RNA sequence: GGACCGCGAUGAAGCGAAAGGUUGCUACCAAAUGGGGAAUUUUCGCUGAGAAUGUCUUGAUCUAAGAAUCGGGCGACUA
Numbered sequence: 001g002g003a004c005c006g007c008g009a010u011g012a013a014g015c016g017a018a019a020g021g022u023u024g025c026u027a028c029c030a031a032a033u034g035g036g037g038a039a040u041u042u043u044c045g046c047u048g049a050g051a052a053u054g055u056c057u058u059g060a061u062c063u064a065a066g067a068a069u070c071g072g073g074c075g076a077c078u079a
Stems, first nucleotide, its partner, number of pairs: 014046003018043004025037001028036002054077003059074001061072002
RNA: S10-Clostridia ribosomal protein leader
Organism: Alkaliphilus serpentinus